[Rfam]
RNA sequence: AAAGCAGCCCGAAAGGGUAGGUGGUAGCCGUCGUGAAAUGCUAGUCGCUCUUCGCGGCGAGACCUUCAAAUUGCGGGGAGUCCUUAAAGCCCAGACUACUAAGCCGCCCGUCGCGAGACGGCGGUGGCCAGGUUAAUUGCCUCGGGUACAGUCACAACGUCUGGGAUGCAACAAUAGGUGAUCCGCAGCCAAGCCCCUCUCGCAGGGGAAGGUUCAGAGACUAGAUGGAGGUCGGUCUCGGGUGGCACAUCGACGUGCGCCGCCCCGGGGCUUAAGAUAUAGUCCGGCCCGGGUCGAAAGGCCCGG
Dot-bracket structure: (................)..........(((......)))....................(((((.((...((((((....(((...........................................................................................)))...))))))((....(((........)))....))...[.[[[[[..)).))))).((((((((.....................))))))))........]]]]]].....(((((....)))))..
Numbered sequence: 001a002a003a004g005c006a007g008c009c010c011g012a013a014a015g016g017g018u019a020g021g022u023g024g025u026a027g028c029c030g031u032c033g034u035g036a037a038a039u040g041c042u043a044g045u046c047g048c049u050c051u052u053c054g055c056g057g058c059g060a061g062a063c064c065u066u067c068a069a070a071u072u073g074c075g076g077g078g079a080g081u082c083c084u085u086a087a088a089g090c091c092c093a094g095a096c097u098a099c100u101a102a103g104c105c106g107c108c109c110g111u112c113g114c115g116a117g118a119c120g121g122c123g124g125u126g127g128c129c130a131g132g133u134u135a136a137u138u139g140c141c142u143c144g145g146g147u148a149c150a151g152u153c154a155c156a157a158c159g160u161c162u163g164g165g166a167u168g169c170a171a172c173a174a175u176a177g178g179u180g181a182u183c184c185g186c187a188g189c190c191a192a193g194c195c196c197c198u199c200u201c202g203c204a205g206g207g208g209a210a211g212g213u214u215c216a217g218a219g220a221c222u223a224g225a226u227g228g229a230g231g232u233c234g235g236u237c238u239c240g241g242g243u244g245g246c247a248c249a250u251c252g253a254c255g256u257g258c259g260c261c262g263c264c265c266c267g268g269g270g271c272u273u274a275a276g277a278u279a280u281a282g283u284c285c286g287g288c289c290c291g292g293g294u295c296g297a298a299a300g301g302c303c304c305g306g
Stems, first nucleotide, its partner, number of pairs: 001018001029040003061233005067227002072187006082178003188213002194207003217285001219284005235271008291304005
The family of this 306-nucleotide RNA sequence from Corymbia citriodora is "Group I catalytic intron". NCBI's taxonomy places the organism under Eukaryota, rosids, Myrtaceae, Corymbia, Corymbia citriodora. About the family: Group I catalytic introns are large self-splicing ribozymes.